[Rfam]
RNA sequence: UUCAUUGCCAAUGCAGCAUCAUCAGGAUUCUCAGGCCCAAACUAUACAUAUAUAUACCUUUAUAUAUACACGUUGCAUGUGAAUCUUGAUGAUGCUACAUUUGCAAACAA
Numbered sequence: 001u002u003c004a005u006u007g008c009c010a011a012u013g014c015a016g017c018a019u020c021a022u023c024a025g026g027a028u029u030c031u032c033a034g035g036c037c038c039a040a041a042c043u044a045u046a047c048a049u050a051u052a053u054a055u056a057c058c059u060u061u062a063u064a065u066a067u068a069c070a071c072g073u074u075g076c077a078u079g080u081g082a083a084u085c086u087u088g089a090u091g092a093u094g095c096u097a098c099a100u101u102u103g104c105a106a107a108c109a110a
Stems, first nucleotide, its partner, number of pairs: 010101004015096016032079002